Overview:
A member of the RNA family "PhotoRC-II RNA", 95 nucleotides long. The family's consensus secondary structure is taken from published work. Rfam's curators put it in the seed alignment.
RNA sequence: AAUCAUUUGUAACACCCCCCAAACCAAGACCUAUAGGGUGUAUAAAAACGUCUUUCAUAUCCCGGACUUAGGGUGUCUGGGAAAUAGUAACUCCA
Dot-bracket structure: ............(((((...(....[[[[[...).))))).........]]]]]......(((((((.......)))))))..............